RNA sequence: UCCGUUGUAGUCUAGCUAGUUAGGAUAUUCGGCUCUCACCUGAAAGACCCGAGUUCGAGUCCCGGUAACGGAA
Numbered sequence: 001u002c003c004g005u006u007g008u009a010g011u012c013u014a015g016c017u018a019g020u021u022a023g024g025a026u027a028u029u030c031g032g033c034u035c036u037c038a039c040c041u042g043a044a045a046g047a048c049c050c051g052a053g054u055u056c057g058a059g060u061c062c063c064g065g066u067a068a069c070g071g072a073a
Stems, first nucleotide, its partner, number of pairs: 001072007010026004028044005049065003053061001